[Rfam]
RNA sequence: GUUGAAGCUCCAGCUACAAAUGGGUAAGACUUUGGUCUUAGUGUAUACAAUUUCUUGAAAUAAAGGAGCAAUAACCAAUUUCUUGUUCUAGAAAGGGUAUUGUUAUUGCUCCUUUAUU
Dot-bracket structure: ........((((........)))).....................................(((((((((((((..(..(((((........)))))..)..)))))))))))))...
RNA: Plastid-psbA-1 3UTR RNA